[Rfam]
RNA sequence: AGAGGUCAUAAGUUUGAAGCCAUAGCAGAAGUGUUCAUGGUGUGGCCUGUCAGAUUCCUACAAAUCUGCAAAUUCUGCU
Numbered sequence: 001a002g003a004g005g006u007c008a009u010a011a012g013u014u015u016g017a018a019g020c021c022a023u024a025g026c027a028g029a030a031g032u033g034u035u036c037a038u039g040g041u042g043u044g045g046c047c048u049g050u051c052a053g054a055u056u057c058c059u060a061c062a063a064a065u066c067u068g069c070a071a072a073u074u075c076u077g078c079u
Stems, first nucleotide, its partner, number of pairs: 016047001019046003024079007031043003051068006
Record summary
Mammalian CPEB3 ribozyme: a 79-nucleotide RNA sequence from Alligator mississippiensis. The mammalian CPEB3 ribozyme is a self cleaving RNA located in the second intron of the CPEB3 gene which belongs to a family of genes regulating messenger RNA polyadenylation. This ribozyme is highly conserved and found only in mammals. The CPEB3 ribozyme is structurally and biochemically related to the human hepatitis delta virus (HDV) ribozyme and the HDV ribozyme is proposed to have arisen from the human transcriptome. There is currently only one other known self cleaving ribozyme in mammals, the CoTC motif. NCBI's taxonomy places the organism under Eukaryota, Metazoa, Archelosauria, Alligatorinae, Alligator. Rfam links the family to the GO term RNA nuclease activity.